[Rfam]
RNA sequence: UUUUGCACAAUGCAAAAGACUUAUGCGGAUAACCACCGCGUAGCCAGGAGAACUGGCAUUGGACUCCUAAAAGGAGAAACAAAAUG
Numbered sequence: 001u002u003u004u005g006c007a008c009a010a011u012g013c014a015a016a017a018g019a020c021u022u023a024u025g026c027g028g029a030u031a032a033c034c035a036c037c038g039c040g041u042a043g044c045c046a047g048g049a050g051a052a053c054u055g056g057c058a059u060u061g062g063a064c065u066c067c068u069a070a071a072a073g074g075a076g077a078a079a080c081a082a083a084a085u086g
Base pairs, nucleotide, nucleotide: 001017002016003015004014005013006012022042023041024040025039026038027037028036043057044056045055046054
The family of this 86-nucleotide RNA is "freshwater-2 RNA". Pairs were carried over by alignment from the consensus structure, which is taken from published work. It is annotated as a cis-regulatory element.